[Rfam]
RNA sequence: UACUACCAAACCCUUUCUCCACCUCCACGUGGUGAUCGCUGGGAAUUCUUUCUUUAUGAAAAACUACAGACGGAGAAGG
Numbered sequence: 001u002a003c004u005a006c007c008a009a010a011c012c013c014u015u016u017c018u019c020c021a022c023c024u025c026c027a028c029g030u031g032g033u034g035a036u037c038g039c040u041g042g043g044a045a046u047u048c049u050u051u052c053u054u055u056a057u058g059a060a061a062a063a064c065u066a067c068a069g070a071c072g073g074a075g076a077a078g079g
Base pairs, nucleotide, nucleotide: 012079013078014077015076016075018073019072021033022032023031045065047063049061050060051059052058
RNA: drz-agam-1 ribozyme